Shown here is a 139-nucleotide RNA sequence from Theobroma cacao, a member of the family "Small nucleolar RNA snoR136". A reference for the family is Chen and Wu (2009), "Mining small RNA sequencing data: a new approach to identify small nucleolar RNAs in Arabidopsis", Nucleic Acids Res. Its family is annotated with RNA processing and nucleolus in the Gene Ontology. Rfam classes the family as an H/ACA-box small nucleolar RNA. The base pairs follow the family's consensus structure, which was predicted with mfold.

RNA sequence: GUGGCUUCGCAUAAACUUAAAAACUGAUAAAUUUACUAAUAGUUAUGAGUUUUUGUGACUGUGAAGCCUAAAUUUAUUGUUCUCCUCGCUAUCCAUUUCCAUAAUUAUAUGGAUUUUCGGACGUCGGGGACCGACAUCC
Numbered sequence: 001g002u003g004g005c006u007u008c009g010c011a012u013a014a015a016c017u018u019a020a021a022a023a024c025u026g027a028u029a030a031a032u033u034u035a036c037u038a039a040u041a042g043u044u045a046u047g048a049g050u051u052u053u054u055g056u057g058a059c060u061g062u063g064a065a066g067c068c069u070a071a072a073u074u075u076a077u078u079g080u081u082c083u084c085c086u087c088g089c090u091a092u093c094c095a096u097u098u099c100c101a102u103a104a105u106u107a108u109a110u111g112g113a114u115u116u117u118c119g120g121a122c123g124u125c126g127g128g129g130a131c132c133g134a135c136a137u138c139c
Stems, first nucleotide, its partner, number of pairs: 002070001003068003008063004016057001021052005027046001030044003079132001081130005087123002092121003101110003
It scores 67 bits against the family's covariance model.